[Rfam]
RNA sequence: GGCAGGCAAGCGCAGGGAUUGUAGAGGUCGCCGGAAGGCGGCAGCCCGAAUGGGUGGGAUCCUCGAACCUGGGGCCUGUCACACA
Numbered sequence: 001g002g003c004a005g006g007c008a009a010g011c012g013c014a015g016g017g018a019u020u021g022u023a024g025a026g027g028u029c030g031c032c033g034g035a036a037g038g039c040g041g042c043a044g045c046c047c048g049a050a051u052g053g054g055u056g057g058g059a060u061c062c063u064c065g066a067a068c069c070u071g072g073g074g075c076c077u078g079u080c081a082c083a084c085a
Stems, first nucleotide, its partner, number of pairs: 001080007011072001013071004022066001024064003027042006045054003
RNA: DUF3800-VII RNA
Organism: Mizugakiibacter sediminis